[Rfam]
RNA sequence: AUUUGAGGUAGAGGCGCAAAACGAAUAAGUAGCAUAUGGAGUUCAUGGAAGACGAUGAAAUAUGACGAAAGGUCAAUUUGCCGAAGUGUAGAAGGAGAUCCAUUUCUUUUUAUGCUGGGCCGCUGCUGAACAAGCAGCGGACUGUCACUACAACAGUAGUGGAGAGCUAUUCCGACA
Numbered sequence: 001a002u003u004u005g006a007g008g009u010a011g012a013g014g015c016g017c018a019a020a021a022c023g024a025a026u027a028a029g030u031a032g033c034a035u036a037u038g039g040a041g042u043u044c045a046u047g048g049a050a051g052a053c054g055a056u057g058a059a060a061u062a063u064g065a066c067g068a069a070a071g072g073u074c075a076a077u078u079u080g081c082c083g084a085a086g087u088g089u090a091g092a093a094g095g096a097g098a099u100c101c102a103u104u105u106c107u108u109u110u111u112a113u114g115c116u117g118g119g120c121c122g123c124u125g126c127u128g129a130a131c132a133a134g135c136a137g138c139g140g141a142c143u144g145u146c147a148c149u150a151c152a153a154c155a156g157u158a159g160u161g162g163a164g165a166g167c168u169a170u171u172c173c174g175a176c177a
Base pairs, nucleotide, nucleotide: 007171008170009169010168011167016081017080018079019078020077023074024073032066033064034063035062036061037060085116086115087114088113089112090111091110092109093108094107095106096105117143118142120140121139122138123137124136125135126134127133145162146161147160148159149158150157151156